RNA sequence: AUCUGACACAGUUCUACGGUUGCCGGUCUGGCACCAUCAUUUGGCCGUGGAGCCAUGAC
Number, nucleotide and partner (000 for none) at each position: 001a000002u000003c000004u000005g000006a000007c049008a048009c047010a000011g045012u044013u043014c000015u000016a041017c000018g035019g034020u000021u033022g032023c031024c030025g029026g000027u000028c000029u025030g024031g023032c022033a021034c019035c018036a000037u000038c000039a000040u000041u016042u000043g013044g012045c011046c000047g009048u008049g007050g000051a000052g000053c000054c000055a000056u000057g000058a000059c000
RNA: Selenocysteine insertion sequence 3